[Rfam]
This 125-nucleotide RNA from Streptomyces showdoensis belongs to the Rfam family "Streptomyces RNA 3920". Rfam describes the family as follows. Identified by deep sequencing of transcriptome at the end of exponential growth phase. For this family Rfam cites "Deep sequencing-based identification of small non-coding RNAs in Streptomyces coelicolor" (Vockenhuber et al., RNA Biol, 2011).
RNA sequence: GAUAGGUCGCUGUCGCUACCGUGAUUGGACACUGACGCAGAGUCAACUAGCCUUGUCCAGGCGGUUGUCCGCCGGGGGGAAGGGGGCGUUCCGAGCCACGAGGGGGGAGGUUCGGAACGUCCCGU
Numbered sequence: 001g002a003u004a005g006g007u008c009g010c011u012g013u014c015g016c017u018a019c020c021g022u023g024a025u026u027g028g029a030c031a032c033u034g035a036c037g038c039a040g041a042g043u044c045a046a047c048u049a050g051c052c053u054u055g056u057c058c059a060g061g062c063g064g065u066u067g068u069c070c071g072c073c074g075g076g077g078g079g080a081a082g083g084g085g086g087c088g089u090u091c092c093g094a095g096c097c098a099c100g101a102g103g104g105g106g107g108a109g110g111u112u113c114g115g116a117a118c119g120u121c122c123c124g125u
Base pairs, nucleotide, nucleotide: 001014002013003012004011005010015051016050017049018048021032022031023030033045034044035043036042058075060073061072062071063070064069085121086120087119088118089117090116091115092114093113094112095111096110097109099106